[Rfam]
RNA sequence: GCAUCUGAAUCUUUCCCACUCCUUGCUGUGUGGUGCUGGACUGUGGGGACACAGGAUGCAACAGGAAAGCAGAGGAAAUCCAGACAGGCUCUUUCACUGCACUGGGGUUUGUCUCUACACCUUUGCAACAUUG
Numbered sequence: 001g002c003a004u005c006u007g008a009a010u011c012u013u014u015c016c017c018a019c020u021c022c023u024u025g026c027u028g029u030g031u032g033g034u035g036c037u038g039g040a041c042u043g044u045g046g047g048g049a050c051a052c053a054g055g056a057u058g059c060a061a062c063a064g065g066a067a068a069g070c071a072g073a074g075g076a077a078a079u080c081c082a083g084a085c086a087g088g089c090u091c092u093u094u095c096a097c098u099g100c101a102c103u104g105g106g107g108u109u110u111g112u113c114u115c116u117a118c119a120c121c122u123u124u125g126c127a128a129c130a131u132u133g
Base pairs, nucleotide, nucleotide: 001059002058003057004056005055013049014048015047016046017045018044019043021039022038069126070125071124072123073122074121082114083113084112085111086110087109088108089107095104096103
Description:
Rfam assigns this 133-nucleotide sequence from Callipepla squamata to the family "Small nucleolar RNA SNORA55". It scores 112 bits against the family's covariance model. NCBI's taxonomy places the organism under Eukaryota, Craniata, Gnathostomata, Odontophoridae, Callipepla. The base pairs follow the family's consensus structure, which was predicted with PFOLD. Rfam 15.1 lists 1,476 matches to the family in 616 species. The family's RNA type in Rfam is H/ACA-box small nucleolar RNA. ACA55 is a member of the H/ACA class of snoRNA that guide the sites of modification of uridines to pseudouridines.